[Rfam]
RNA sequence: GUAUUCUUGCGCCCAUGAAUCGCAUCCUGUCCGCUACCCGACGUCGCCGCUCGCCCCACCUUUAGGGCCUGGCUAGUCGCGGACGCGCGUUGCACGGGGGUUUCGCCCCCCACGCACAGGAAGUUCGAAUCACGAAAGCCACGGCCAGUCCGUGGCUUUUUG
Numbered sequence: 001g002u003a004u005u006c007u008u009g010c011g012c013c014c015a016u017g018a019a020u021c022g023c024a025u026c027c028u029g030u031c032c033g034c035u036a037c038c039c040g041a042c043g044u045c046g047c048c049g050c051u052c053g054c055c056c057c058a059c060c061u062u063u064a065g066g067g068c069c070u071g072g073c074u075a076g077u078c079g080c081g082g083a084c085g086c087g088c089g090u091u092g093c094a095c096g097g098g099g100g101u102u103u104c105g106c107c108c109c110c111c112a113c114g115c116a117c118a119g120g121a122a123g124u125u126c127g128a129a130u131c132a133c134g135a136a137a138g139c140c141a142c143g144g145c146c147a148g149u150c151c152g153u154g155g156c157u158u159u160u161u162g
Stems, first nucleotide, its partner, number of pairs: 007128002010089003014085001031082003039076001041074001043073003049068002054065001135159010

The family of this 162-nucleotide RNA from Paraburkholderia eburnea is "Burkholderia sRNA 7". The family's consensus secondary structure was predicted with R-scape. On this family, see Ghosh et al., Microbiology 2017: "Identification of novel small RNAs in Burkholderia cenocepacia KC-01 expressed under iron limitation and oxidative stress conditions". Did not show any change in expression in iron-depletion and hydrogen peroxide (oxidative stress) treatment. Constitutively expressed. Lineage of the source: Bacteria > Pseudomonadota > Betaproteobacteria > Burkholderiales > Paraburkholderia.